Notes
This 33-nucleotide RNA belongs to the Rfam family "DUF805b RNA". Pairs were carried over by alignment from the consensus structure, which is taken from published work.

RNA sequence: AAAGUGGAAGCCGAAAAACUUUACGAGUAGGCA
Numbered sequence: 001a002a003a004g005u006g007g008a009a010g011c012c013g014a015a016a017a018a019c020u021u022u023a024c025g026a027g028u029a030g031g032c033a
Stems, first nucleotide, its partner, number of pairs: 002021004010032003